[Rfam]
RNA sequence: UCAGCUGCUGUAAACAUCCUUGACUGGAAGCUGUGACAUGAUGGAAAAGGCUUUCAGUCGGAUGUUUACAGCUGUUGG
Numbered sequence: 001u002c003a004g005c006u007g008c009u010g011u012a013a014a015c016a017u018c019c020u021u022g023a024c025u026g027g028a029a030g031c032u033g034u035g036a037c038a039u040g041a042u043g044g045a046a047a048a049g050g051c052u053u054u055c056a057g058u059c060g061g062a063u064g065u066u067u068a069c070a071g072c073u074g075u076u077g078g
Stems, first nucleotide, its partner, number of pairs: 002077004008071012023058010
Dot-bracket structure: .((((..((((((((((((...((((((((((................)))))))))).))))))))))))..)))).
RNA: mir-30 microRNA precursor family
Organism: Eleutherodactylus coqui